[Rfam]
RNA: Bacillaceae-1 RNA
Organism: Domibacillus mangrovi
RNA sequence: UUUAAAAGGUCAAAGACUUAACACCGCGACGUCCUGUCGCAACAUCUUUGUGACCCACGUCCU
Numbered sequence: 001u002u003u004a005a006a007a008g009g010u011c012a013a014a015g016a017c018u019u020a021a022c023a024c025c026g027c028g029a030c031g032u033c034c035u036g037u038c039g040c041a042a043c044a045u046c047u048u049u050g051u052g053a054c055c056c057a058c059g060u061c062c063u
Stems, first nucleotide, its partner, number of pairs: 011050006018044001026040005